[Rfam]
RNA sequence: GCACCCGUAGCUCAGUUGGAUAGAGUAUCGGCCUCCGAAGCCGAGGGUCGCGCGUUCGAAUCGCGCCGGGUGCA
Numbered sequence: 001g002c003a004c005c006c007g008u009a010g011c012u013c014a015g016u017u018g019g020a021u022a023g024a025g026u027a028u029c030g031g032c033c034u035c036c037g038a039a040g041c042c043g044a045g046g047g048u049c050g051c052g053c054g055u056u057c058g059a060a061u062c063g064c065g066c067c068g069g070g071u072g073c074a
Base pairs, nucleotide, nucleotide: 001073002072003071004070005069006068007067010026011025012024013023028044029043030042031041032040050066051065052064053063054062